[Rfam]
RNA sequence: GGCCUGUCCUUUGCAAUUGCCAGCUGACAGGCAGUCAACGCCGAUUGCCAUCUUCACGACAAAGGCGCCGU
Number, nucleotide and partner (000 for none) at each position: 001g000002g000003c000004c000005u000006g000007u000008c000009c000010u000011u000012u000013g000014c000015a000016a000017u000018u000019g000020c000021c000022a000023g000024c000025u000026g000027a000028c000029a000030g049031g048032c047033a046034g045035u044036c043037a000038a000039c000040g000041c000042c000043g036044a035045u034046u033047g032048c031049c030050a000051u000052c000053u000054u000055c000056a000057c000058g000059a000060c000061a000062a000063a000064g000065g000066c000067g000068c000069c000070g000071u000